[Rfam]
RNA sequence: AGCAAAAUGAGGAGGGUAUAUGAUCUGAAGUACCUAAUGUUGAUACAACCACUCAAGGUCUUCAAAGUUCUCUGAUUGCU
Numbered sequence: 001a002g003c004a005a006a007a008u009g010a011g012g013a014g015g016g017u018a019u020a021u022g023a024u025c026u027g028a029a030g031u032a033c034c035u036a037a038u039g040u041u042g043a044u045a046c047a048a049c050c051a052c053u054c055a056a057g058g059u060c061u062u063c064a065a066a067g068u069u070c071u072c073u074g075a076u077u078g079c080u
Stems, first nucleotide, its partner, number of pairs: 001080005